U11 spliceosomal RNA: a 134-nucleotide RNA sequence from Nannospalax galili.
RNA sequence: UUAGGGAGCUUCUGCCUUGAGUGACACACAAAGGGUAACACAAUUACUCUGUGUGCUGAAUCAACAACAAGAGAACUCAAAAGCAUAGUUUUUUGGUACUUGGGCAGCUGGCAAUCACUGGUCCCAGAGCCCUA
Numbered sequence: 001u002u003a004g005g006g007a008g009c010u011u012c013u014g015c016c017u018u019g020a021g022u023g024a025c026a027c028a029c030a031a032a033g034g035g036u037a038a039c040a041c042a043a044u045u046a047c048u049c050u051g052u053g054u055g056c057u058g059a060a061u062c063a064a065c066a067a068c069a070a071g072a073g074a075a076c077u078c079a080a081a082a083g084c085a086u087a088g089u090u091u092u093u094u095g096g097u098a099c100u101u102g103g104g105c106a107g108c109u110g111g112c113a114a115u116c117a118c119u120g121g122u123c124c125c126a127g128a129g130c131c132c133u134a
Stems, first nucleotide, its partner, number of pairs: 008084004013026002016023001027055004032050007058077001061074002102132004108127004114122003
On this family, see Montzka and Steitz, Proc Natl Acad Sci U S A 1988: "Additional low-abundance human small nuclear ribonucleoproteins: U11, U12, etc".
The family's consensus secondary structure is taken from published work.
The source organism's lineage runs through Eukaryota, Euteleostomi, Sarcopterygii, Myomorpha and Nannospalax.